RNA sequence: CAGUAAGGAAACCCCGCUAAGAACGUUGACGUCCAUGUCAACAACGCGGGAUAGAUCAUCCAGGAUC
Numbered sequence: 001c002a003g004u005a006a007g008g009a010a011a012c013c014c015c016g017c018u019a020a021g022a023a024c025g026u027u028g029a030c031g032u033c034c035a036u037g038u039c040a041a042c043a044a045c046g047c048g049g050g051a052u053a054g055a056u057c058a059u060c061c062a063g064g065a066u067c
Stems, first nucleotide, its partner, number of pairs: 011052001013050005026041005056064002
RNA: Bacillaceae-1 RNA
Organism: Effusibacillus lacus